The record is a 133-nucleotide RNA sequence from Aestuariispira insulae, which matches "Glycine riboswitch aptamer" in Rfam. It scores 33 bits against the family's covariance model.
RNA sequence: CAUUCUGGAAAGUGAUUGGCCGGGACUUAGGGAUAGGAAAGGGCCAUUCCACCGAAGGGGUAAGCCGGAACAUCUUGGGAUAUUUUCCCGGAAGGAUGUAAAUGGUCACACUCUCAGGUUCGAUGACAGAAGG
Numbered sequence: 001c002a003u004u005c006u007g008g009a010a011a012g013u014g015a016u017u018g019g020c021c022g023g024g025a026c027u028u029a030g031g032g033a034u035a036g037g038a039a040a041g042g043g044c045c046a047u048u049c050c051a052c053c054g055a056a057g058g059g060g061u062a063a064g065c066c067g068g069a070a071c072a073u074c075u076u077g078g079g080a081u082a083u084u085u086u087c088c089c090g091g092a093a094g095g096a097u098g099u100a101a102a103u104g105g106u107c108a109c110a111c112u113c114u115c116a117g118g119u120u121c122g123a124u125g126a127c128a129g130a131a132g133g
Stems, first nucleotide, its partner, number of pairs: 001133001003131005014049002017046005051119003054115002058113003064106004
Dot-bracket structure: (.(((((......((.(((((....................))))).)).(((((..(((...((((...................................))))....))))).))).......))))).)